Background: The record is a 91-nucleotide RNA sequence from Acinetobacter populi, which matches "t44 RNA" in Rfam. From the family's description: This family consists of a number of bacterial RNA genes of between 135 and 170 bases in length. The t44 gene has been identified in several species of enteric bacteria but homologs have also been identified in Pseudomonas and Coxiella species. The source organism's lineage runs through Bacteria, Pseudomonadati, Gammaproteobacteria, Moraxellales and Acinetobacter.
[Rfam]
Nucleotides: 091
Stems, first nucleotide, its partner, number of pairs: 024081008036071004041067004049063004
Number, partner (000 for none) and nucleotide at each position: 001000a002000u003000g004000a005000c006000g007000a008000a009000a010000c011000g012000g013000a014000a015000a016000a017000a018000u019000c020000c021000g022000c023000a024081c025080a026079u027078a028077u029076g030075u031074c032000g033000u034000c035000a036071c037070a038069u039068u040000a041067c042066u043065c044064u045000g046000g047000g048000u049063g050062c051061u052060c053000a054000a055000a056000a057000a058000a059000a060052g061051a062050g063049u064044g065043g066042a067041g068039a069038a070037u071036g072000c073000g074031g075030a076029c077028a078027u079026a080025u081024g082000g083000a084000g085000g086000c087000c088000u089000a090000a091000c